[Rfam]
RNA sequence: GAGAAGCUGGGUCAGACCUGGCUCAGACUUCAGCUACACAAGCUGAUGGACUAAGUCAGGGGCCAAGCUCUCC
Numbered sequence: 001g002a003g004a005a006g007c008u009g010g011g012u013c014a015g016a017c018c019u020g021g022c023u024c025a026g027a028c029u030u031c032a033g034c035u036a037c038a039c040a041a042g043c044u045g046a047u048g049g050a051c052u053a054a055g056u057c058a059g060g061g062g063c064c065a066a067g068c069u070c071u072c073c
Stems, first nucleotide, its partner, number of pairs: 001072004006068001010064004017060006025052002028049002030046006
The family of this 73-nucleotide RNA from Otolemur garnettii is "mir-631 microRNA precursor family". For this family Rfam cites "Genome-wide comparative analysis of microRNAs in three non-human primates" (Brameier, BMC Res Notes, 2010). The organism belongs to Otolemur, within Eukaryota. Rfam 15.1 lists 98 matches to the family in 94 species. Gene Ontology terms of the family: RISC complex and miRNA-mediated post-transcriptional gene silencing.